[Rfam]
RNA sequence: UACUGCUGAUGAUGUCAAUAACAUUACAAUCAAUGGGAAUCUCUCUGAAAUAGAGUGAAAGAGACUGUAAUUACUGAACCAGUA
Numbered sequence: 001u002a003c004u005g006c007u008g009a010u011g012a013u014g015u016c017a018a019u020a021a022c023a024u025u026a027c028a029a030u031c032a033a034u035g036g037g038a039a040u041c042u043c044u045c046u047g048a049a050a051u052a053g054a055g056u057g058a059a060a061g062a063g064a065c066u067g068u069a070a071u072u073a074c075u076g077a078a079c080c081a082g083u084a
Stems, first nucleotide, its partner, number of pairs: 001084005007078001
Notes:
Small nucleolar RNA SNORD79: an 84-nucleotide sequence from Scyliorhinus torazame. Gene Ontology terms of the family: nucleolus and RNA processing. Lineage of the source: Eukaryota > Eumetazoa > Chondrichthyes > Galeomorphii > Scyliorhinus. The family is grouped with related families in Rfam's "SNORD74 clan". Pairs were carried over by alignment from the consensus structure, which was predicted with PFOLD.